MIR398 microRNA precursor family: a 101-nucleotide RNA sequence from Apostasia shenzhenica. The source organism's lineage runs through Eukaryota, Viridiplantae, Tracheophyta, Orchidaceae and Apostasia.
[Rfam]
RNA sequence: AGUGUCCCCAGAGGAGUGAAAUCUGAGAACAGGGAUGCAGCCAUGGCUGAUUGAUCUAUAGCACUGCUGCUCUGUUCUCAGGUCACCCCUUUGGGCAUCCC
Dot-bracket structure: ......((..((((.((((.....((((((((((...................................))))))))))...)))).))))..))......
Numbered sequence: 001a002g003u004g005u006c007c008c009c010a011g012a013g014g015a016g017u018g019a020a021a022u023c024u025g026a027g028a029a030c031a032g033g034g035a036u037g038c039a040g041c042c043a044u045g046g047c048u049g050a051u052u053g054a055u056c057u058a059u060a061g062c063a064c065u066g067c068u069g070c071u072c073u074g075u076u077c078u079c080a081g082g083u084c085a086c087c088c089c090u091u092u093g094g095g096c097a098u099c100c101c
Stems, first nucleotide, its partner, number of pairs: 007095002011091004016086004025079010